[Rfam]
RNA sequence: UUUUCGUAAUCGCUGAGUUUCCGUAAGGAAAACGGGGGAACCAAUGUUUUGGGGUGAAUCUUGGAAGAGACAUGUUCGGGCAGCUUGUCCAAAACGAAAUUUUCUCUUUCGAGUAGGGCGACUCUCGCGUCCGAAUCCGUCAGCUAACCUCGUAAGCGUGAAGAGAGGUACC
Numbered sequence: 001u002u003u004u005c006g007u008a009a010u011c012g013c014u015g016a017g018u019u020u021c022c023g024u025a026a027g028g029a030a031a032a033c034g035g036g037g038g039a040a041c042c043a044a045u046g047u048u049u050u051g052g053g054g055u056g057a058a059u060c061u062u063g064g065a066a067g068a069g070a071c072a073u074g075u076u077c078g079g080g081c082a083g084c085u086u087g088u089c090c091a092a093a094a095c096g097a098a099a100u101u102u103u104c105u106c107u108u109u110c111g112a113g114u115a116g117g118g119c120g121a122c123u124c125u126c127g128c129g130u131c132c133g134a135a136u137c138c139g140u141c142a143g144c145u146a147a148c149c150u151c152g153u154a155a156g157c158g159u160g161a162a163g164a165g166a167g168g169u170a171c172c
Stems, first nucleotide, its partner, number of pairs: 011158004018031003032153006042051002052138003060113011116132004
The record is a 172-nucleotide sequence from Paenibacillus sp. yr247, which matches "c-di-AMP riboswitch aptamer (ydaO/yuaA leader)" in Rfam. Rfam describes the family as follows. This family represents a conserved RNA structure found upstream of the ydaO and yuaA genes in Bacillus subtilis and related genes in other bacteria. Lineage of the source: Bacteria > Bacillati > Bacilli > Paenibacillaceae > Paenibacillus. A search with the family's covariance model found it, with a score of 98 bits.